[Rfam]
RNA sequence: UUUCUGGUUGAUCCUGCCAGAGGUCACUGCUAUCGGUGUCCGAUUAAGCCAUGCGAGUCGUGAGGGGUUAUGCCCUCGGCGGACUGCUCAGUAACACGUGGAUAACCUGCCCAAGGGUCUGGGAUAACCCCGGGAAACUGGGGAUAAUACCGGAUGGAUCACUAGUGCUGGAAUGCUUGGUGGUCGAAAGGCAACGCCUUUGGAUGGGUCUGCGGCGGAUUAGGUUGACGCCGGUGUAACGUACCGGCGUGCCUGUAAUCCGUACGGGUUGUGGGAGCAAGAGCCCGGAGAUGGAUUCUGAGACACGAAUCCAGGCCCUACGGGGCGCAGCAGGCGCGAAAACUCUACAAUGCAGGCAACUGCGAUAGGGGGACAUCGAGUGGCAUCCACCUUGGGUGCCUGUCCAACCGUCUAAAAAACGGUUGUUAGCAAGGGCCGGGUAAGACCGGUGCCAGCCGCCGCGGUAAUACCGGCGGCUCGAGUGGUGGCCGAUAUUAUUG
Numbered sequence: 001u002u003u004c005u006g007g008u009u010g011a012u013c014c015u016g017c018c019a020g021a022g023g024u025c026a027c028u029g030c031u032a033u034c035g036g037u038g039u040c041c042g043a044u045u046a047a048g049c050c051a052u053g054c055g056a057g058u059c060g061u062g063a064g065g066g067g068u069u070a071u072g073c074c075c076u077c078g079g080c081g082g083a084c085u086g087c088u089c090a091g092u093a094a095c096a097c098g099u100g101g102a103u104a105a106c107c108u109g110c111c112c113a114a115g116g117g118u119c120u121g122g123g124a125u126a127a128c129c130c131c132g133g134g135a136a137a138c139u140g141g142g143g144a145u146a147a148u149a150c151c152g153g154a155u156g157g158a159u160c161a162c163u164a165g166u167g168c169u170g171g172a173a174u175g176c177u178u179g180g181u182g183g184u185c186g187a188a189a190g191g192c193a194a195c196g197c198c199u200u201u202g203g204a205u206g207g208g209u210c211u212g213c214g215g216c217g218g219a220u221u222a223g224g225u226u227g228a229c230g231c232c233g234g235u236g237u238a239a240c241g242u243a244c245c246g247g248c249g250u251g252c253c254u255g256u257a258a259u260c261c262g263u264a265c266g267g268g269u270u271g272u273g274g275g276a277g278c279a280a281g282a283g284c285c286c287g288g289a290g291a292u293g294g295a296u297u298c299u300g301a302g303a304c305a306c307g308a309a310u311c312c313a314g315g316c317c318c319u320a321c322g323g324g325g326c327g328c329a330g331c332a333g334g335c336g337c338g339a340a341a342a343c344u345c346u347a348c349a350a351u352g353c354a355g356g357c358a359a360c361u362g363c364g365a366u367a368g369g370g371g372g373a374c375a376u377c378g379a380g381u382g383g384c385a386u387c388c389a390c391c392u393u394g395g396g397u398g399c400c401u402g403u404c405c406a407a408c409c410g411u412c413u414a415a416a417a418a419a420c421g422g423u424u425g426u427u428a429g430c431a432a433g434g435g436c437c438g439g440g441u442a443a444g445a446c447c448g449g450u451g452c453c454a455g456c457c458g459c460c461g462c463g464g465u466a467a468u469a470c471c472g473g474c475g476g477c478u479c480g481a482g483u484g485g486u487g488g489c490c491g492a493u494a495u496u497a498u499u500g
Base pairs, nucleotide, nucleotide: 004020005019006018007017008016022490023489024488025487026486027485028484029483030482031481033379034378035377036376037375038374039373040372041371042337048335049334050333052332053331054330057080058079059078062077063076064075065074066073087290088289089288097214098213099212100211101210102209103208106207107206111203112202113201114200115199116198117197119153120152121151122150128143129142130141131140132139133138158184159183160182161181162180163179164178165177167176168175191195216262217261218260223253224252225251228250229249230248231247232246233245234244235243265287266286267285268284269280270279271278272277292313293312294311295310296309297308315326316325317324318323343369345368346367347366351364352363353362354361355360382400383399384398385397386396387395388394389393404429405425406424407423408422409421410420411419433479434478435477436476437475438474446473447472448471449470455462456461

This 500-nucleotide part of an RNA from Methanocella paludicola belongs to the Rfam family "Archaeal small subunit ribosomal RNA". The base pairs follow the family's consensus structure, which is taken from published work. Gene Ontology terms of the family: structural constituent of ribosome and ribosome. A reference for the family is Yusupov et al. (2001), "Crystal structure of the ribosome at 5.5 A resolution", Science. It is one of the family's seed sequences.